[Rfam]
RNA sequence: UGGCUGUGAUGACAUCUUAGGACACCUUUGGAUUAAAGAUGAAAACACUGAUAUAGUCUGAGCCAC
Numbered sequence: 001u002g003g004c005u006g007u008g009a010u011g012a013c014a015u016c017u018u019a020g021g022a023c024a025c026c027u028u029u030g031g032a033u034u035a036a037a038g039a040u041g042a043a044a045a046c047a048c049u050g051a052u053a054u055a056g057u058c059u060g061a062g063c064c065a066c
Stems, first nucleotide, its partner, number of pairs: 001065004
Annotation:
The family of this 66-nucleotide RNA from Menidia menidia is "Small nucleolar RNA SNORD58". A reference for the family is Galardi et al. (2002), "Purified box C/D snoRNPs are able to reproduce site-specific 2'-O-methylation of target RNA in vitro", Mol Cell Biol. snoRNA U58 is found in introns 1, 3 and 6 of the ribosomal protein RPL17 gene in humans.